[Rfam]
RNA sequence: GGAACGCAUAUUAAUUAUCCCCGAUGGGAUAAACAAAAACCCUGAAAAAACAAGUUAGCACACCUUAGAAUGGUUCUAGCACGAUUAAUAACAUAUGGCUCUGAUGCCAGUUGAUGAGAAAAACUC
Numbered sequence: 001g002g003a004a005c006g007c008a009u010a011u012u013a014a015u016u017a018u019c020c021c022c023g024a025u026g027g028g029a030u031a032a033a034c035a036a037a038a039a040c041c042c043u044g045a046a047a048a049a050a051c052a053a054g055u056u057a058g059c060a061c062a063c064c065u066u067a068g069a070a071u072g073g074u075u076c077u078a079g080c081a082c083g084a085u086u087a088a089u090a091a092c093a094u095a096u097g098g099c100u101c102u103g104a105u106g107c108c109a110g111u112u113g114a115u116g117a118g119a120a121a122a123a124c125u126c
Base pairs, nucleotide, nucleotide: 009116010115011114012113013112014111015110016109022103023102024096025095026094028092043081044080048075049074051072052071055068056067057066058065
Dot-bracket structure: ........((((((((.....(((((.(..............((...((.((..((((......))))..)).))....))..........).))).....)).....))))))))..........